Glycine riboswitch aptamer: a 75-nucleotide RNA sequence from Blautia sp. CAG:257. The pairing is the family consensus, mapped onto this sequence. A search with the family's covariance model found it, with a score of 43 bits. For this family Rfam cites "A glycine-dependent riboswitch that uses cooperative binding to control gene expression" (Mandal et al., Science, 2004).

RNA sequence: AUGAAGUCUGCAGGAAAGAGGCUUUUGGCCCGCCGAAGGAGUAAAACUCUCAGGUACCCGUAUUUCGGGCAGAAA
Numbered sequence: 001a002u003g004a005a006g007u008c009u010g011c012a013g014g015a016a017a018g019a020g021g022c023u024u025u026u027g028g029c030c031c032g033c034c035g036a037a038g039g040a041g042u043a044a045a046a047c048u049c050u051c052a053g054g055u056a057c058c059c060g061u062a063u064u065u066c067g068g069g070c071a072g073a074a075a
Stems, first nucleotide, its partner, number of pairs: 006070005012064002020030004032055003035051002039049003